RNA: Small nucleolar RNA snoR31/Z110/Z27
RNA sequence: UUCAUCAGGUGAUGAAAUCUGGAAAUAAAUCUUAGGACACCUUCCUACACAGCUAGAAAGCUCUAGCUGUGGAUGAGAAAGACAUUUCUACUCUGAUGAUGAA
Numbered sequence: 001u002u003c004a005u006c007a008g009g010u011g012a013u014g015a016a017a018u019c020u021g022g023a024a025a026u027a028a029a030u031c032u033u034a035g036g037a038c039a040c041c042u043u044c045c046u047a048c049a050c051a052g053c054u055a056g057a058a059a060g061c062u063c064u065a066g067c068u069g070u071g072g073a074u075g076a077g078a079a080a081g082a083c084a085u086u087u088c089u090a091c092u093c094u095g096a097u098g099a100u101g102a103a
Base pairs, nucleotide, nucleotide: 001103002102003101004100005099006098007097